[Rfam]
RNA sequence: GGCCCAAAUUUGAAAUAGAGUGGAUUAGGAGGGUCAUCUGACCCUACUAGGCUACACUGUUUCGAGUUUGUACCC
Numbered sequence: 001g002g003c004c005c006a007a008a009u010u011u012g013a014a015a016u017a018g019a020g021u022g023g024a025u026u027a028g029g030a031g032g033g034u035c036a037u038c039u040g041a042c043c044c045u046a047c048u049a050g051g052c053u054a055c056a057c058u059g060u061u062u063c064g065a066g067u068u069u070g071u072a073c074c075c
Stems, first nucleotide, its partner, number of pairs: 001074002005070005011064008020055004025050004030045001032043004